[Rfam]
RNA sequence: CUUCAAGAGAUGCGGCGCCAAGCUCCGACUGGCCGCGCACCAACCCCAUGUUCACAGGGUGGUUCGGAUGAGGAAGCGGCCCGCGGUGACAGGAUCCGCGGGCAAGAGCACUCU
Numbered sequence: 001c002u003u004c005a006a007g008a009g010a011u012g013c014g015g016c017g018c019c020a021a022g023c024u025c026c027g028a029c030u031g032g033c034c035g036c037g038c039a040c041c042a043a044c045c046c047c048a049u050g051u052u053c054a055c056a057g058g059g060u061g062g063u064u065c066g067g068a069u070g071a072g073g074a075a076g077c078g079g080c081c082c083g084c085g086g087u088g089a090c091a092g093g094a095u096c097c098g099c100g101g102g103c104a105a106g107a108g109c110a111c112u113c114u
Stems, first nucleotide, its partner, number of pairs: 001076004009038001011037006021030002039063003044059003049056001079103008